Rfam assigns this 134-nucleotide sequence from Albula glossodonta to the family "Small nucleolar RNA SNORA14". Its family is annotated with RNA processing and nucleolus in the Gene Ontology. A search with the family's covariance model found it, with a score of 54 bits. ACA14 is a member of the H/ACA class of snoRNA that guide the sites of modification of uridines to pseudouridines.
RNA sequence: AAGCAUUCUUAGAAACCCCCCAGUUGCUAUUUGUAGCCUCUGGGACAAGAAAGAAUGCAAAAGCAAUCCUACAGUAAAGCAAAGCUGAGGGUCAUACUGCAGUGACUCUUAGCCAGUUCAGCUUUAGGACACUU
Numbered sequence: 001a002a003g004c005a006u007u008c009u010u011a012g013a014a015a016c017c018c019c020c021c022a023g024u025u026g027c028u029a030u031u032u033g034u035a036g037c038c039u040c041u042g043g044g045a046c047a048a049g050a051a052a053g054a055a056u057g058c059a060a061a062a063g064c065a066a067u068c069c070u071a072c073a074g075u076a077a078a079g080c081a082a083a084g085c086u087g088a089g090g091g092u093c094a095u096a097c098u099g100c101a102g103u104g105a106c107u108c109u110u111a112g113c114c115a116g117u118u119c120a121g122c123u124u125u126a127g128g129a130c131a132c133u134u
Stems, first nucleotide, its partner, number of pairs: 003058004009050002019044005026037002062134002067129005073123001084113006091106002097102001